[Rfam]
RNA sequence: GUCGUCGUGAGGCGGGGUCUGAAGGAAGCGUGGAGCAGCGCCAUGACCUGACGAACAGAAAUCCAAUAUGAGGCCUACCCGGCUGGCGGAGCAAGCAACUGAUUGCGAAGGCCAUAAUCAUCAAGCGCCGGGAUGGAAGAUUGGGCAGGAGUGGGGUGAAAGCGGCGGAG
Numbered sequence: 001g002u003c004g005u006c007g008u009g010a011g012g013c014g015g016g017g018u019c020u021g022a023a024g025g026a027a028g029c030g031u032g033g034a035g036c037a038g039c040g041c042c043a044u045g046a047c048c049u050g051a052c053g054a055a056c057a058g059a060a061a062u063c064c065a066a067u068a069u070g071a072g073g074c075c076u077a078c079c080c081g082g083c084u085g086g087c088g089g090a091g092c093a094a095g096c097a098a099c100u101g102a103u104u105g106c107g108a109a110g111g112c113c114a115u116a117a118u119c120a121u122c123a124a125g126c127g128c129c130g131g132g133a134u135g136g137a138a139g140a141u142u143g144g145g146c147a148g149g150a151g152u153g154g155g156g157u158g159a160a161a162g163c164g165g166c167g168g169a170g
Stems, first nucleotide, its partner, number of pairs: 002015005031167002035163002040157003044153002047149004062145006074136002078132006085113003091106004

This 170-nucleotide RNA from Tenebrionibacter intestinalis belongs to the Rfam family "Group II catalytic intron D1-D4-3". The pairing is the family consensus, mapped onto this sequence. A search with the family's covariance model found it, with a score of 113 bits. A reference for the family is Bonen and Vogel (2001), "The ins and outs of group II introns", Trends Genet. Rfam 15.1 lists 4,274 matches to the family in 1,585 species.